[Rfam]
Shown here is a 57-nucleotide RNA from Salmo salar, a member of the family "mir-101 microRNA precursor family". The base pairs follow the family's consensus structure, which was predicted with RNAalifold. NCBI's taxonomy places the organism under Eukaryota, Teleostomi, Teleostei, Salmoninae, Salmo. For this family Rfam cites "Identification of tissue-specific microRNAs from mouse" (Lagos-Quintana et al., Curr Biol, 2002). Rfam 15.1 lists 1,334 matches to the family in 644 species.
RNA sequence: CAGUUAUCAUGGUACCGGUGCUGUGUCCCUGUCAAGUACAGUACUAUGAUAACUGAA
Dot-bracket structure: (((((((((((((((.(.((((............))))).)))))))))))))))..
Numbered sequence: 001c002a003g004u005u006a007u008c009a010u011g012g013u014a015c016c017g018g019u020g021c022u023g024u025g026u027c028c029c030u031g032u033c034a035a036g037u038a039c040a041g042u043a044c045u046a047u048g049a050u051a052a053c054u055g056a057a
Stems, first nucleotide, its partner, number of pairs: 001055015017039001019038004